[Rfam]
RNA sequence: UCCAGGUAGUGCAGAAUAUGCGCCCUGCAAAAUAGAGAAAUAACCGGCGCUUCAGGCGUCGGUUAUUUUUUUGC
Numbered sequence: 001u002c003c004a005g006g007u008a009g010u011g012c013a014g015a016a017u018a019u020g021c022g023c024c025c026u027g028c029a030a031a032a033u034a035g036a037g038a039a040a041u042a043a044c045c046g047g048c049g050c051u052u053c054a055g056g057c058g059u060c061g062g063u064u065a066u067u068u069u070u071u072u073g074c
Stems, first nucleotide, its partner, number of pairs: 011021002041065009

About this RNA: Shown here is a 74-nucleotide RNA sequence from Pantoea alhagi, a member of the family "Enterobacterial sRNA STnc240".